[Rfam]
RNA sequence: UACAGGGAUGUCAAAGAAGGACGUGUUGCAUCCUUGGCACAAGAUUGCCCAUUUGGCGGGGCUCUGUUUGUAAUAAUAAGAAUUAUAUGAAUAACAGUUGCUG
Numbered sequence: 001u002a003c004a005g006g007g008a009u010g011u012c013a014a015a016g017a018a019g020g021a022c023g024u025g026u027u028g029c030a031u032c033c034u035u036g037g038c039a040c041a042a043g044a045u046u047g048c049c050c051a052u053u054u055g056g057c058g059g060g061g062c063u064c065u066g067u068u069u070g071u072a073a074u075a076a077u078a079a080g081a082a083u084u085a086u087a088u089g090a091a092u093a094a095c096a097g098u099u100g101c102u103g
Stems, first nucleotide, its partner, number of pairs: 001072003005050003010045003055069002057066002

Shown here is a 103-nucleotide RNA sequence from Eptatretus burgeri, a member of the family "Small nucleolar RNA TBR6". The match comes from Rfam's covariance-model search (39 bits). Rfam 15.1 lists 57 matches to the family in 15 species. Its family is annotated with RNA processing and nucleolus in the Gene Ontology. Rfam describes the family as follows. TBR6 was one of seventeen snoRNAs identified in Trypanosoma brucei. Together with TBR2, TBR12 and TBR4 it is a part of snoRNA gene cluster that is tandemly repeated. These 4 snoRNA genes are transcribed as a polycistronic RNA transcript. The base pairs follow the family's consensus structure, which was predicted with RNAfold. The family's RNA type in Rfam is C/D-box small nucleolar RNA.